A member of the RNA family "antisense RNA of dnaA mRNA" from Klebsiella indica, 81 nucleotides long. A reference for the family is Dadzie et al. (2013), "Identification and characterization of a cis-encoded antisense RNA associated with the replication process of Salmonella enterica serovar Typhi", PLoS One. Lineage of the source: Bacteria > Pseudomonadota > Gammaproteobacteria > Enterobacterales > Klebsiella.
RNA sequence: UUUCGCGUUGGGUUUGCGCGCCACGAUGCCAUUACCGACUGCGUGCAACAGGUGGGUUUUCCCCAGACCGGUGCCGCCAUA
Numbered sequence: 001u002u003u004c005g006c007g008u009u010g011g012g013u014u015u016g017c018g019c020g021c022c023a024c025g026a027u028g029c030c031a032u033u034a035c036c037g038a039c040u041g042c043g044u045g046c047a048a049c050a051g052g053u054g055g056g057u058u059u060u061c062c063c064c065a066g067a068c069c070g071g072u073g074c075c076g077c078c079a080u081a
Stems, first nucleotide, its partner, number of pairs: 004043004009038001011036003016032001018030001020029002051078004056074002062071002
A search with the family's covariance model found it, with a score of 83 bits.
Rfam links the family to the GO term regulation of mRNA stability.